This 128-nucleotide RNA from Oryzias latipes belongs to the Rfam family "U4atac minor spliceosomal RNA".
Pairs were carried over by alignment from the consensus structure, which is taken from published work.
Rfam's curators write: U4atac is an essential component of the minor U12-type spliceosome complex which is required for removal of the rarer class of eukaryotic introns (AT-AC, U12-type).
The family's RNA type in Rfam is spliceosomal small nuclear RNA.
The organism belongs to Oryzias, within Eukaryota.
[Rfam]
RNA sequence: ACCAUCCUAGUCUUGGGGUGAAACGGGAAACUCAAUGAGCGUCUAGCGAGAGUUCCCUGCUGACACCAUUACCAACACAUUCGCAUCUCCUAAACUUUAUGUUUAGGUUACGGUGCAAUUUUUGGAAA
Numbered sequence: 001a002c003c004a005u006c007c008u009a010g011u012c013u014u015g016g017g018g019u020g021a022a023a024c025g026g027g028a029a030a031c032u033c034a035a036u037g038a039g040c041g042u043c044u045a046g047c048g049a050g051a052g053u054u055c056c057c058u059g060c061u062g063a064c065a066c067c068a069u070u071a072c073c074a075a076c077a078c079a080u081u082c083g084c085a086u087c088u089c090c091u092a093a094a095c096u097u098u099a100u101g102u103u104u105a106g107g108u109u110a111c112g113g114u115g116c117a118a119u120u121u122u123u124g125g126a127a128a
Base pairs, nucleotide, nucleotide: 006018007017008016020061023058025056026055027054029053031052032051033050039047040046083116084115085114086113087112088110089107090106091105092104093103094102